transfer-messenger RNA: a 376-nucleotide RNA from Clavibacter sepedonicus. The organism belongs to Clavibacter, within Bacteria. The sequence is in the family's curated seed alignment. By type it is a non-coding RNA gene. Gene Ontology term of the family: RNA catabolic process. About the family: Bacterial tmRNA, also known as 10Sa RNA or SsrA, is named for its dual tRNA and mRNA-like properties. Its role is to liberate the mRNA from a stalled ribosome.
[Rfam]
RNA sequence: GGGGAUGAUCGGUUUCGACAUUGCCUGAAUGACUGCGAGAAGCGGGUCGAGGAUGCAGGGCUAUCUCGUAAACGCUCUCUGCAAAAUACAACUGCCAAUAACAAGCAGUCGUCCUUUGUUCUCGCUGCCUAAGCGAGCGCACUAACAGGACCGUCGACCCGGUGAUGCUCUCUAUCCGGUAAGUCGGCGUCAGAAAAGGGAGCUCGCUGCGCGGUCGUGCCUCAGGGCCGCGCGGGACUCGAACUGAGGCUGGGCCCGUCGGAUCAGAUGCCAGGAGCAAGUUCCGGGGCCGAGCAGGACGCCUUUCCUGGAUACACCCGUAGAAGGCGCAGGAUUACAGCAGUGGACCGGGGUUCGAUUCCCCGCAUCUCCACCA
Numbered sequence: 001g002g003g004g005a006u007g008a009u010c011g012g013u014u015u016c017g018a019c020a021u022u023g024c025c026u027g028a029a030u031g032a033c034u035g036c037g038a039g040a041a042g043c044g045g046g047u048c049g050a051g052g053a054u055g056c057a058g059g060g061c062u063a064u065c066u067c068g069u070a071a072a073c074g075c076u077c078u079c080u081g082c083a084a085a086a087u088a089c090a091a092c093u094g095c096c097a098a099u100a101a102c103a104a105g106c107a108g109u110c111g112u113c114c115u116u117u118g119u120u121c122u123c124g125c126u127g128c129c130u131a132a133g134c135g136a137g138c139g140c141a142c143u144a145a146c147a148g149g150a151c152c153g154u155c156g157a158c159c160c161g162g163u164g165a166u167g168c169u170c171u172c173u174a175u176c177c178g179g180u181a182a183g184u185c186g187g188c189g190u191c192a193g194a195a196a197a198g199g200g201a202g203c204u205c206g207c208u209g210c211g212c213g214g215u216c217g218u219g220c221c222u223c224a225g226g227g228c229c230g231c232g233c234g235g236g237a238c239u240c241g242a243a244c245u246g247a248g249g250c251u252g253g254g255c256c257c258g259u260c261g262g263a264u265c266a267g268a269u270g271c272c273a274g275g276a277g278c279a280a281g282u283u284c285c286g287g288g289g290c291c292g293a294g295c296a297g298g299a300c301g302c303c304u305u306u307c308c309u310g311g312a313u314a315c316a317c318c319c320g321u322a323g324a325a326g327g328c329g330c331a332g333g334a335u336u337a338c339a340g341c342a343g344u345g346g347a348c349c350g351g352g353g354u355u356c357g358a359u360u361c362c363c364c365g366c367a368u369c370u371c372c373a374c375c376a
Stems, first nucleotide, its partner, number of pairs: 001372007019345006028336001033332005043320005048068005054083006119141001121139001123137001125135001152189006159179003167203007207235009219250005253291005265281001271311003276306002349365005